[Rfam]
RNA sequence: ACAAUGUUCCGCUGUGAAAGAGAAUUCAUAAGAACAUUUG
Numbered sequence: 001a002c003a004a005u006g007u008u009c010c011g012c013u014g015u016g017a018a019a020g021a022g023a024a025u026u027c028a029u030a031a032g033a034a035c036a037u038u039u040g
Base pairs, nucleotide, nucleotide: 003038004037005036006035007034008033009032013030014029015028016027017026018025
A member of the RNA family "Ribosomal protein L19 leader" from Melissococcus plutonius, 40 nucleotides long. The base pairs follow the family's consensus structure, which was predicted with CMfinder. NCBI's taxonomy places the organism under Bacteria, Bacillati, Bacilli, Lactobacillales, Melissococcus plutonius. Rfam's curators write: This family is a putative r-protein leader autoregulatory structure found in B. subtilis and other low-GC Gram-positive bacteria. It is located in the 5' untranslated regions of mRNAs encoding ribosomal protein L19 (rplS).